[Rfam]
Purine riboswitch aptamer: a 100-nucleotide RNA from Bacillus aerolatus. The organism belongs to Bacillus, within Bacteria. The family is grouped with related families in Rfam's "Purine riboswitches". From the family's description: Riboswitches are metabolite binding domains within certain messenger RNAs that serve as precision sensors for their corresponding targets.
RNA sequence: UAAAAUUAAUAAAAAAAUUUUCGUAUAACUCCAAUGAUAUGGUUUGGAGGUCUCUACCAGGAACCAAUAAUUCCUGAUUACGAAGAAGGUACAUGUACUU
Dot-bracket structure: .................((((((((...((((((.........))))))........((((((.......))))))..))))))))..............
Numbered sequence: 001u002a003a004a005a006u007u008a009a010u011a012a013a014a015a016a017a018u019u020u021u022c023g024u025a026u027a028a029c030u031c032c033a034a035u036g037a038u039a040u041g042g043u044u045u046g047g048a049g050g051u052c053u054c055u056a057c058c059a060g061g062a063a064c065c066a067a068u069a070a071u072u073c074c075u076g077a078u079u080a081c082g083a084a085g086a087a088g089g090u091a092c093a094u095g096u097a098c099u100u
Stems, first nucleotide, its partner, number of pairs: 018086008029049006058076006